[Rfam]
RNA sequence: CUCCACAGCUACUGGUCUGGAACUGUUCAGAACUGUAACAGUUGCAGUAUUCCUCUGUGGAAAAGAAACUGUUACAUAGCAUUAAGCUUCUUCUCAGAUCUUCCGAGGAGGACUUCCUGUGUAACUAACAAUG
Numbered sequence: 001c002u003c004c005a006c007a008g009c010u011a012c013u014g015g016u017c018u019g020g021a022a023c024u025g026u027u028c029a030g031a032a033c034u035g036u037a038a039c040a041g042u043u044g045c046a047g048u049a050u051u052c053c054u055c056u057g058u059g060g061a062a063a064a065g066a067a068a069c070u071g072u073u074a075c076a077u078a079g080c081a082u083u084a085a086g087c088u089u090c091u092u093c094u095c096a097g098a099u100c101u102u103c104c105g106a107g108g109a110g111g112a113c114u115u116c117c118u119g120u121g122u123a124a125c126u127a128a129c130a131a132u133g
Stems, first nucleotide, its partner, number of pairs: 003060004017047003021043005074122005088112008
Shown here is a 133-nucleotide sequence from Podilymbus podiceps, a member of the family "Small nucleolar RNA SNORA41". NCBI's taxonomy places the organism under Eukaryota, Dipnotetrapodomorpha, Sauropsida, Archosauria, Podilymbus. Rfam links the family to the GO terms RNA processing and nucleolus. Rfam describes the family as follows. ACA41 is a member of the H/ACA class of snoRNA that guide the sites of modification of uridines to pseudouridines. By type it is an H/ACA-box small nucleolar RNA. Pairs were carried over by alignment from the consensus structure, which was predicted with PFOLD.